Rfam assigns this 86-nucleotide RNA from Chitinimonas arctica to the family "Group II catalytic intron D1-D4-1". The family has 237 seed sequences and 2,508 matches in Rfam 15.1. About the family: Group II introns are found in rRNA, tRNA and mRNA of organelles in fungi, plants and protists, and also in mRNA in bacteria. The base pairs follow the family's consensus structure. It scores 46 bits against the family's covariance model. The organism belongs to Chitinimonas, within Bacteria.
[Rfam]
RNA sequence: CGCCUAGUGCCUGAAAGGGCGACGGUGAUAAGCCGGAGCGAGGAGUCAGCAGAGGCCAUAGUAGCCGCCGGUAUGGGGCGAAGGGC
Number, nucleotide and partner (000 for none) at each position: 001c027002g026003c000004c000005u024006a000007g000008u021009g020010c019011c018012u017013g000014a000015a000016a000017g012018g011019g010020c009021g008022a000023c000024g005025g000026u002027g001028a000029u000030a000031a000032g000033c000034c000035g000036g000037a000038g000039c000040g000041a000042g000043g000044a000045g000046u053047c052048a000049g000050c000051a000052g047053a046054g000055g086056c085057c084058a000059u000060a000061g000062u000063a000064g079065c078066c077067g000068c075069c000070g000071g000072u000073a000074u000075g068076g000077g066078g065079c064080g000081a000082a000083g000084g057085g056086c055